[Rfam]
RNA sequence: GCAGACUCACUCUGUACUGAACUGCAGUCUUCAGUUCAGGUGCUUUUUCUGUCUGCGAGAGUAAUAGUUCACAGGAAUGACAAUUGCCUUCUUUCUCGUAGAAGGCUGUUACAGUCGCUGUUGGGACAUUGCU
Numbered sequence: 001g002c003a004g005a006c007u008c009a010c011u012c013u014g015u016a017c018u019g020a021a022c023u024g025c026a027g028u029c030u031u032c033a034g035u036u037c038a039g040g041u042g043c044u045u046u047u048u049c050u051g052u053c054u055g056c057g058a059g060a061g062u063a064a065u066a067g068u069u070c071a072c073a074g075g076a077a078u079g080a081c082a083a084u085u086g087c088c089u090u091c092u093u094u095c096u097c098g099u100a101g102a103a104g105g106c107u108g109u110u111a112c113a114g115u116c117g118c119u120g121u122u123g124g125g126a127c128a129u130u131g132c133u
Base pairs, nucleotide, nucleotide: 001056002055003054004053005052006051014043015042016041017040018038019037020036022034023033024032068124069123071121072120073119074118075116076115078113079112086106087105088104089103090102091101092100